[Rfam]
RNA sequence: AACUUAAACCAAUAUAUCCUUCAUAUAUCCUCGAUAAUAUGGAUCGAAAGUUUCUACCGAAUCACCGUAAAUGAUUUGACUAUGAAGGCGGAUUUUAACAGG
Dot-bracket structure: .................((((((((.....(((((.......)))))..........(((((((.......)))))))..))))))))..............
RNA: Purine riboswitch aptamer